[Rfam]
Shown here is a 138-nucleotide RNA sequence from Sporomusa sphaeroides, a member of the family "c-di-AMP riboswitch aptamer (ydaO/yuaA leader)". A reference for the family is Barrick et al. (2004), "New RNA motifs suggest an expanded scope for riboswitches in bacterial genetic control", Proc Natl Acad Sci U S A. NCBI's taxonomy places the organism under Bacteria, Bacillati, Bacillota, Sporomusa, Sporomusa sphaeroides.

RNA sequence: AUAUAGGCCAUGCCGAAUUUCCAGAGAAAAAGGAAAACGGGGGAACCAUUUCCGGGGUGAAUCCGCUAACAAGCGGUAGGGAUUUCCCUUUGUCCCGAACCCGUCAGCUAACCUCGUAGGCAUUUAGAAAGGGGUGUU
Numbered sequence: 001a002u003a004u005a006g007g008c009c010a011u012g013c014c015g016a017a018u019u020u021c022c023a024g025a026g027a028a029a030a031a032g033g034a035a036a037a038c039g040g041g042g043g044a045a046c047c048a049u050u051u052c053c054g055g056g057g058u059g060a061a062u063c064c065g066c067u068a069a070c071a072a073g074c075g076g077u078a079g080g081g082a083u084u085u086c087c088c089u090u091u092g093u094c095c096c097g098a099a100c101c102c103g104u105c106a107g108c109u110a111a112c113c114u115c116g117u118a119g120g121c122a123u124u125u126a127g128a129a130a131g132g133g134g135u136g137u138u
Stems, first nucleotide, its partner, number of pairs: 011122004018036005037117006047054001055102003063076004079096004